Notes:
Rfam assigns this 89-nucleotide sequence from Sapajus apella to the family "NoRC associated RNA, pRNA". Taxonomically the source falls in Sapajus (Eukaryota, Metazoa, Tetrapoda, Simiiformes). Rfam links the family to the GO term chromatin remodeling.

RNA sequence: CGAUGGUGGCCUUUUUGGGGACAGAUGUCCGUGUCGCGCAUUCCUGAGUUGGCCGUGUGGCCGGUGACUCGACCCCCUGGGCCCCGGAU
Numbered sequence: 001c002g003a004u005g006g007u008g009g010c011c012u013u014u015u016u017g018g019g020g021a022c023a024g025a026u027g028u029c030c031g032u033g034u035c036g037c038g039c040a041u042u043c044c045u046g047a048g049u050u051g052g053c054c055g056u057g058u059g060g061c062c063g064g065u066g067a068c069u070c071g072a073c074c075c076c077c078u079g080g081g082c083c084c085c086g087g088a089u
Stems, first nucleotide, its partner, number of pairs: 004086001006084001008083002011081002018078003027068003030064001033061007
Overview
Rfam classes the family as a non-coding RNA gene. The literature on the family includes a 2008 paper in EMBO Rep by Mayer et al., "The structure of NoRC-associated RNA is crucial for targeting the chromatin remodelling complex NoRC to the nucleolus".